[Rfam]
Nucleotides: 132
Base pairs, nucleotide, nucleotide: 003058006055007054008053017042018041019040022036023035024033025032071124072123073122074121086110087109088108089107090106092104093103094102
Number, partner (000 for none) and nucleotide at each position: 001000c002000a003058g004000c005000a006055a007054g008053c009000c010000u011000c012000c013000a014000g015000c016000a017042u018041g019040c020000u021000u022036g023035g024033u025032c026000u027000a028000c029000c030000a031000u032025g033024a034000u035023c036022c037000u038000g039000u040019g041018u042017g043000u044000u045000c046000c047000u048000a049000c050000a051000g052000u053008g054007c055006u056000c057000a058003c059000c060000a061000g062000a063000a064000c065000a066000g067000c068000u069000g070000a071124g072123a073122g074121a075000g076000g077000g078000u079000g080000u081000g082000a083000g084000g085000a086110c087109u088108u089107g090106c091000c092104c093103u094102g095000c096000u097000c098000u099000g100000u101000u102094c103093a104092g105000a106090g107089c108088a109087a110086g111000g112000u113000u114000a115000u116000a117000g118000a119000a120000a121074u122073u123072u124071c125000a126000u127000a128000c129000a130000a131000u132000u